[Rfam]
The record is a 131-nucleotide RNA from Pteropus alecto, which matches "Small nucleolar RNA SNORA68" in Rfam. Rfam's curators write: U68 is a member of the H/ACA class of small nucleolar RNAs (snoRNAs) which act as guides in the the modification of uridines to pseudouridines. Taxonomically the source falls in Pteropus (Eukaryota, Deuterostomia, Gnathostomata, Sarcopterygii). By type it is an H/ACA-box small nucleolar RNA. The base pairs follow the family's consensus structure, which was predicted with PFOLD.
RNA sequence: CAAGCACCUAAACCCAAGAACUGCUGUUUCUUGUAACAGCAGUUUAAACAGAGGUGCUGAUAGCAAGCGGAUCUCGUCGCCUUUGGGGGCUAUUCUGUGCCCCUUAAAGUGAAUUUGGAGGUUCUACACUC
Numbered sequence: 001c002a003a004g005c006a007c008c009u010a011a012a013c014c015c016a017a018g019a020a021c022u023g024c025u026g027u028u029u030c031u032u033g034u035a036a037c038a039g040c041a042g043u044u045u046a047a048a049c050a051g052a053g054g055u056g057c058u059g060a061u062a063g064c065a066a067g068c069g070g071a072u073c074u075c076g077u078c079g080c081c082u083u084u085g086g087g088g089g090c091u092a093u094u095c096u097g098u099g100c101c102c103c104u105u106a107a108a109g110u111g112a113a114u115u116u117g118g119a120g121g122u123u124c125u126a127c128a129c130u131c
Base pairs, nucleotide, nucleotide: 003058004057005056006055007054008053009052019044020043021042022041023040024039025038026037027036028035069124070123071122072121073120074119075118081109082108083107084106085105086103087102088101089100090099